The family of this 65-nucleotide RNA is "pemK RNA".
The family's RNA type in Rfam is cis-regulatory element.

[Rfam]
RNA sequence: AUAAUGAUACUUCUGUGCAAAACGCGCGGCCGGCGGGCAUCCCGGCGGAGGUGAGAUUCCUAUGA
Dot-bracket structure: ...........(((((((.....))))))(((.(((.....))).)))(((.......))))...